Description:
Rfam assigns this 232-nucleotide sequence from Chloroflexi bacterium AL-W to the family "glmS glucosamine-6-phosphate activated ribozyme aptamer". A reference for the family is Winkler et al. (2004), "Control of gene expression by a natural metabolite-responsive ribozyme", Nature. Taxonomically the source falls in Chloroflexota (Bacteria, Bacillati). Pairs were carried over by alignment from the consensus structure, which is taken from published work.
RNA sequence: GCAACAUCACAAGCGCAUGGGCUGUGUGACACACCACGUCAUUUAAUGGUGUCCGCACAGUUGACGAGGUGGAGGUUCCUCGCCGCAGGGCGGGGCUAACGUCAGCAGACUCCAAGACUGACUGGCGGAACAUCGAACAGAUCAGCGGAUGCCUCCCAGGUAUAGCGCCCCUGCAAGCGCCUCAGCAAAACCGUUCGGCAACGAGCGGAACAAGCAUGGCGUAGCGCAUAAU
Numbered sequence: 001g002c003a004a005c006a007u008c009a010c011a012a013g014c015g016c017a018u019g020g021g022c023u024g025u026g027u028g029a030c031a032c033a034c035c036a037c038g039u040c041a042u043u044u045a046a047u048g049g050u051g052u053c054c055g056c057a058c059a060g061u062u063g064a065c066g067a068g069g070u071g072g073a074g075g076u077u078c079c080u081c082g083c084c085g086c087a088g089g090g091c092g093g094g095g096c097u098a099a100c101g102u103c104a105g106c107a108g109a110c111u112c113c114a115a116g117a118c119u120g121a122c123u124g125g126c127g128g129a130a131c132a133u134c135g136a137a138c139a140g141a142u143c144a145g146c147g148g149a150u151g152c153c154u155c156c157c158a159g160g161u162a163u164a165g166c167g168c169c170c171c172u173g174c175a176a177g178c179g180c181c182u183c184a185g186c187a188a189a190a191c192c193g194u195u196c197g198g199c200a201a202c203g204a205g206c207g208g209a210a211c212a213a214g215c216a217u218g219g220c221g222u223a224g225c226g227c228a229u230a231a232u
Base pairs, nucleotide, nucleotide: 020062021061022060023059024058025057026056027055071156072155073154074153075152080145082143157173158172159171160170177222178221179220180219181218191208192207193206194205195204196203197202